[Rfam]
RNA sequence: CCGCAGCCAGAGCGGCCCUCGGGGGAUCUGGACACUGAUAGGCCGGUAGUGCAGUGAUCGACGAAAACACCGGCAGCC
Numbered sequence: 001c002c003g004c005a006g007c008c009a010g011a012g013c014g015g016c017c018c019u020c021g022g023g024g025g026a027u028c029u030g031g032a033c034a035c036u037g038a039u040a041g042g043c044c045g046g047u048a049g050u051g052c053a054g055u056g057a058u059c060g061a062c063g064a065a066a067a068c069a070c071c072g073g074c075a076g077c078c
Stems, first nucleotide, its partner, number of pairs: 001015004007031005016023002033056005042074005
Rfam assigns this 78-nucleotide RNA sequence to the family "Proteo-phage-1 RNA". The base pairs follow the family's consensus structure, which is taken from published work. The sequence is in the family's curated seed alignment.